Rfam assigns this 89-nucleotide RNA from Ramphastos sulfuratus to the family "Small nucleolar RNA SNORD60". Gene Ontology terms of the family: nucleolus and RNA processing. The family is grouped with related families in Rfam's "SNORD60 clan". Rfam 15.1 lists 825 matches to the family in 373 species.
RNA sequence: GGCCGGUGAUGAUUCCUCAACCUUUCUGACACCUCGUCUGAGGGCGGCGGGCGGCCGCCGCCUCUGCUGACGAUGCACGGCUGAGGCCC
Numbered sequence: 001g002g003c004c005g006g007u008g009a010u011g012a013u014u015c016c017u018c019a020a021c022c023u024u025u026c027u028g029a030c031a032c033c034u035c036g037u038c039u040g041a042g043g044g045c046g047g048c049g050g051g052c053g054g055c056c057g058c059c060g061c062c063u064c065u066g067c068u069g070a071c072g073a074u075g076c077a078c079g080g081c082u083g084a085g086g087c088c089c
Stems, first nucleotide, its partner, number of pairs: 001088004044061007